[Rfam]
Nucleotides: 058
Stems, first nucleotide, its partner, number of pairs: 001025005007019003030058003034053005
Number, partner (000 for none) and nucleotide at each position: 001025a002024g003023c004022g005021g006000a007019c008018c009017c010000c011000u012000g013000u014000g015000u016000c017009g018008g019007g020000c021005c022004c023003g024002c025001u026000c027000u028000u029000c030058c031057c032056a033000c034053c035052c036051g037050g038049u039000a040000c041000c042000u043000g044000a045000u046000a047000c048000g049038g050037c051036c052035g053034g054000u055000g056032u057031g058030g
L17-Actino-Proteobacteria ribosomal protein leader: a 58-nucleotide RNA sequence. The base pairs follow the family's consensus structure, which is taken from published work. By type it is a cis-regulatory leader. The sequence is in the family's curated seed alignment.